Rfam assigns this 64-nucleotide RNA from Myotis lucifugus to the family "mir-9242 microRNA precursor family". The organism belongs to Myotis, within Eukaryota. A search with the family's covariance model found it, with a score of 75 bits. Rfam links the family to the GO terms RISC complex and miRNA-mediated post-transcriptional gene silencing.
RNA sequence: GGCCUCCCUCUGCGGGGCGAUUGAUCGUGGAACCCCCUGAUUGAUCGCCCUGCAGAGGGUGGCC
Numbered sequence: 001g002g003c004c005u006c007c008c009u010c011u012g013c014g015g016g017g018c019g020a021u022u023g024a025u026c027g028u029g030g031a032a033c034c035c036c037c038u039g040a041u042u043g044a045u046c047g048c049c050c051u052g053c054a055g056a057g058g059g060u061g062g063c064c
Stems, first nucleotide, its partner, number of pairs: 001064004006059022029036002